[Rfam]
RNA sequence: CCCUGACAGCCGCAUUCUGUGGCUGACUUAACCCCGACAGGAGAUUCUUAUG
Numbered sequence: 001c002c003c004u005g006a007c008a009g010c011c012g013c014a015u016u017c018u019g020u021g022g023c024u025g026a027c028u029u030a031a032c033c034c035c036g037a038c039a040g041g042a043g044a045u046u047c048u049u050a051u052g
Stems, first nucleotide, its partner, number of pairs: 002041004007025005
Rfam assigns this 52-nucleotide RNA sequence to the family "Mu-gpT-DE RNA". The base pairs follow the family's consensus structure, which is taken from published work. The family's RNA type in Rfam is small RNA.